[Rfam]
RNA: Small nucleolar RNA Z107/R87
RNA sequence: GAUUGCGGUGAUGACUCCAAAAUUCAAGCUCAACAGACCAGAUUGCAGGUAUCUCUCUUUGGGAGAAAUUUGCUUGUCGACUACCCCACUGAACUGAGCUAUC
Numbered sequence: 001g002a003u004u005g006c007g008g009u010g011a012u013g014a015c016u017c018c019a020a021a022a023u024u025c026a027a028g029c030u031c032a033a034c035a036g037a038c039c040a041g042a043u044u045g046c047a048g049g050u051a052u053c054u055c056u057c058u059u060u061g062g063g064a065g066a067a068a069u070u071u072g073c074u075u076g077u078c079g080a081c082u083a084c085c086c087c088a089c090u091g092a093a094c095u096g097a098g099c100u101a102u103c
Stems, first nucleotide, its partner, number of pairs: 001103003005099002